Small Cajal body specific RNA 16: a 180-nucleotide sequence from Podarcis muralis. A reference for the family is Darzacq et al. (2002), "Cajal body-specific small nuclear RNAs: a novel class of 2'-O-methylation and pseudouridylation guide RNAs", EMBO J. NCBI's taxonomy places the organism under Eukaryota, Tetrapoda, Sauria, Episquamata, Podarcis. From the family's description: scaRNAs are a specific class of small nuclear RNAs which localise to the Cajal bodies and guide the modification of RNA polymerase II transcribed spliceosomal RNAs U1, U2, U4, U5 and U12. ACA47 belongs to the H/ACA box class of guide RNAs as it has the predicted hairpin-hinge-hairpin-tail structure, the conserved H/ACA-box motifs and is found associated with GAR1. ACA47 is predicted to guide the pseudouridylation of residue U5 of the U1 spliceosomal snRNA. Gene Ontology terms of the family: RNA processing and nucleolus. The family's consensus secondary structure was predicted with RNAfold.
[Rfam]
RNA sequence: UUGGGCUGGGAAAUGGUUGCUGCGUAGCUGGGCCUGCCGUGGUCCUGCCUUGUACCAGCUAGCCUGACCUUGCCCUAGAUGAAAACCUGGCAGCCUCCUUUUUGGGGUCUGCCCUGUGCAGUAACAGGUGUGAGCAUUCUAGCAGCAGCUUGAUGGUCAUGUAUGAUACUGCAUACAGAU
Numbered sequence: 001u002u003g004g005g006c007u008g009g010g011a012a013a014u015g016g017u018u019g020c021u022g023c024g025u026a027g028c029u030g031g032g033c034c035u036g037c038c039g040u041g042g043u044c045c046u047g048c049c050u051u052g053u054a055c056c057a058g059c060u061a062g063c064c065u066g067a068c069c070u071u072g073c074c075c076u077a078g079a080u081g082a083a084a085a086c087c088u089g090g091c092a093g094c095c096u097c098c099u100u101u102u103u104g105g106g107g108u109c110u111g112c113c114c115u116g117u118g119c120a121g122u123a124a125c126a127g128g129u130g131u132g133a134g135c136a137u138u139c140u141a142g143c144a145g146c147a148g149c150u151u152g153a154u155g156g157u158c159a160u161g162u163a164u165g166a167u168a169c170u171g172c173a174u175a176c177a178g179a180u
Base pairs, nucleotide, nucleotide: 003075004074005073006072008070009069010068015064016063017062018061019059020058021057022056024055025054027048028047030045032043033042034041086107087106088105089103090102092100093099115175116174117173118172119171120170121169122168123167125165126164131159132158133157135155136154137153138152141150142149143148
Dot-bracket structure: ..((((.(((....((((((((.((.((.(.(((......))).).)).....)))))).))))...))).))))..........(((((.((.....)).)).))).......(((((((((.((....(((.((((..(((....))).)))).)))....)).))))))))).....